[Rfam]
RNA sequence: GGCGAUAUAGCCAAGCGGUAAGGCAUGGGCCUGCAAAGCCUUGAUCCCCGGUUCAAAUCCGGGUGUCGCCU
Numbered sequence: 001g002g003c004g005a006u007a008u009a010g011c012c013a014a015g016c017g018g019u020a021a022g023g024c025a026u027g028g029g030c031c032u033g034c035a036a037a038g039c040c041u042u043g044a045u046c047c048c049c050g051g052u053u054c055a056a057a058u059c060c061g062g063g064u065g066u067c068g069c070c071u
Stems, first nucleotide, its partner, number of pairs: 001070007010024003027041004047063005
This 71-nucleotide sequence from Sulfurospirillum deleyianum belongs to the Rfam family "tRNA". On this family, see Hou, Trends Biochem Sci 1993: "The tertiary structure of tRNA and the development of the genetic code". Rfam links the family to the GO term triplet codon-amino acid adaptor activity. It scores 62 bits against the family's covariance model. The family's RNA type in Rfam is transfer RNA.